[Rfam]
RNA sequence: ACAAAUCGAAGAGGUGCAGCCAACACAAGUAGGGUAAUGGAGCCACUGUCGGGCAGUGAGGUUACCUCAACAGGGCGGUUGCCGAAGUGCUUGACUUGACAGGAGCCAGGUUAACUGGGGCGUGGUUGAAUAAGCUACGGACUGUCGCAGGACGAAUAUCAGCCUGCGUUGCGCUAUCGACAAAU
Number, nucleotide and partner (000 for none) at each position: 001a000002c000003a000004a000005a000006u180007c179008g178009a177010a175011g174012a000013g000014g000015u000016g082017c081018a080019g079020c078021c077022a000023a000024c074025a000026c000027a000028a000029g000030u000031a000032g067033g066034g065035u064036a063037a062038u061039g000040g000041a000042g000043c000044c000045a000046c000047u000048g000049u000050c000051g000052g000053g000054c000055a000056g000057u000058g000059a000060g000061g038062u037063u036064a035065c034066c033067u032068c000069a000070a000071c000072a000073g000074g024075g000076c000077g021078g020079u019080u018081g017082c016083c000084g000085a000086a116087g115088u114089g000090c110091u109092u108093g107094a000095c105096u104097u103098g000099a000100c000101a000102g000103g097104a096105g095106c000107c093108a092109g091110g090111u000112u000113a000114a088115c087116u086117g143118g142119g000120g000121c139122g138123u137124g136125g135126u134127u133128g000129a000130a000131u000132a000133a127134g126135c125136u124137a123138c122139g121140g000141a000142c118143u117144g000145u000146c168147g167148c166149a165150g164151g163152a000153c000154g000155a000156a000157u000158a000159u000160c000161a000162g000163c151164c150165u149166g148167c147168g146169u000170u000171g000172c000173g000174c011175u010176a000177u009178c008179g007180a006181c000182a000183a000184a000185u000
The record is a 185-nucleotide RNA sequence from Limosilactobacillus panis, which matches "Lysine riboswitch aptamer" in Rfam. A search with the family's covariance model found it, with a score of 76 bits. The base pairs follow the family's consensus structure, which is taken from published work. The organism belongs to Limosilactobacillus panis, within Bacteria.